Annotation
A member of the RNA family "Antizyme RNA frameshifting stimulation element" from Pan troglodytes, 59 nucleotides long. From the family's description: This family represents a structural element which is found in antizyme mRNA and is known to promote frameshifting. Antizyme genes have have two partially overlapping open reading frames, the second, which encodes the functional protein requires +1 translational frameshifting. This frameshift is stimulated by a pseudoknot present 3' of the frameshift site in the antizyme mRNA. The frameshifting efficiency is dependent on the level of polyamines in the cell, when the polyamine concentration is high frameshifting is more likely to occur which leads to an increase in the quantity of functional antizyme produced. The functional antizyme acts to reduce ornithine decarboxylase (ODC) activity which leads to a drop in polyamines present in the cell. Therefore, this family can be thought of as a biosensor for intracellular free polyamines.
RNA sequence: UGAUGCCGGUCGCCCACCCCUGAAGAUUCCGGGUGGGCGAGGGAAUUGUCAGAGGGAUC
Number, nucleotide and partner (000 for none) at each position: 001u000002g000003a000004u000005g000006c000007c043008g000009g000010u040011c039012g000013c037014c036015c035016a034017c033018c032019c000020c000021u000022g000023a000024a000025g059026a058027u057028u056029c055030c054031g000032g018033g017034u016035g015036g014037g013038c000039g011040a010041g000042g000043g007044a000045a000046u000047u000048g000049u000050c000051a000052g000053a000054g030055g029056g028057a027058u026059c025
A reference for the family is Ivanov et al. (2004), "Identification of a new antizyme mRNA +1 frameshifting stimulatory pseudoknot in a subset of diverse invertebrates and its apparent absence in intermediate species", J Mol Biol. By type it is a frameshift element.